sobemovirus ribosomal frameshift elemental: a 79-nucleotide RNA from Sobemovirus CFMV. It is one of the family's seed sequences. Rfam links the family to the GO term viral translational frameshifting.
RNA sequence: GCAAUCCGGCCUUUAAACUACCAGCGGGCGGGCUCCCUACGGGGCAGUCCGCCCUUGGCCAACUUAUCGAGUACGCGGG
Numbered sequence: 001g002c003a004a005u006c007c008g009g010c011c012u013u014u015a016a017a018c019u020a021c022c023a024g025c026g027g028g029c030g031g032g033c034u035c036c037c038u039a040c041g042g043g044g045c046a047g048u049c050c051g052c053c054c055u056u057g058g059c060c061a062a063c064u065u066a067u068c069g070a071g072u073a074c075g076c077g078g079g
Stems, first nucleotide, its partner, number of pairs: 026054009035044003